THF (Tetrahydrofolate) riboswitch aptamer: a 95-nucleotide RNA sequence from Apilactobacillus kunkeei. From the family's description: Tetrahydrofolate (THF) riboswitch was first reported for Ames et al. as an RNA motif in 5' untranslated (5'-UTR)regions of folate transport and biosynthesis genes in Firmicutes genomes. The source organism's lineage runs through Bacteria, Bacillota, Bacilli, Lactobacillaceae and Apilactobacillus.

[Rfam]
Nucleotides: 095
Base pairs, nucleotide, nucleotide: 001095004092005091010083011082012081013080014079015078016077017076018075019074020072021071022070026056027055029054030053031052032051033050034049040089041088042087043086044085060069061068062067
Number, partner (000 for none) and nucleotide at each position: 001095u002000u003000g004092g005091g006000a007000g008000u009000a010083g011082g012081u013080a014079g015078u016077u017076a018075u019074g020072c021071g022070u023000a024000a025000a026056g027055u028000g029054c030053a031052g032051a033050c034049g035000g036000a037000a038000c039000g040089g041088a042087a043086u044085g045000u046000g047000a048000a049034c050033g051032u052031c053030u054029g055027a056026c057000g058000a059000a060069a061068a062067c063000u064000u065000a066000g067062g068061u069060u070022g071021c072020g073000a074019u075018g076017u077016a078015a079014c080013u081012g082011c083010c084000g085044c086043a087042u088041u089040c090000g091005c092004c093000a094000c095001a